[Rfam]
RNA sequence: GCGGUCUGAGCCUAAACGGCAAGUAGCUCUUCGGAGAUACUUUAGGUUCAAAGACAUGCAAUGUUGUGUUUGCACGUUGUCCGGUUUUACCGGGCAGGUGACGAAAGUCACCAUGUUUCACUUCCUGUACAAUUUUGACCCUGUCUGUCAAUAGUGAAUUCUUUCCGCACUGCCUUUUGGCGGUGCUUUUUUUU
Number, nucleotide and partner (000 for none) at each position: 001g000002c000003g000004g000005u000006c000007u000008g000009a048010g047011c046012c045013u000014a000015a000016a043017c000018g000019g000020c000021a042022a041023g040024u039025a038026g000027c036028u035029c034030u000031u000032c000033g000034g029035a028036g027037a000038u025039a024040c023041u022042u021043u016044a000045g012046g011047u010048u009049c000050a000051a000052a000053g000054a000055c000056a000057u000058g000059c000060a000061a000062u000063g000064u000065u000066g000067u000068g000069u000070u000071u000072g000073c000074a000075c000076g000077u000078u096079g095080u094081c093082c092083g091084g090085u000086u000087u000088u000089a000090c084091c083092g082093g081094g080095c079096a078097g112098g111099u110100g109101a108102c107103g000104a000105a000106a000107g102108u101109c100110a099111c098112c097113a000114u000115g000116u000117u000118u000119c000120a000121c000122u000123u000124c000125c000126u000127g000128u000129a164130c000131a163132a162133u000134u000135u000136u000137g000138a000139c000140c000141c000142u000143g000144u000145c000146u000147g000148u000149c000150a000151a000152u000153a000154g000155u000156g000157a000158a000159u000160u000161c000162u132163u131164u129165c000166c000167g186168c185169a184170c183171u182172g181173c180174c000175u000176u000177u000178u000179g000180g173181c172182g171183g170184u169185g168186c167187u000188u000189u000190u000191u000192u000193u000194u000
RNA: GcvB RNA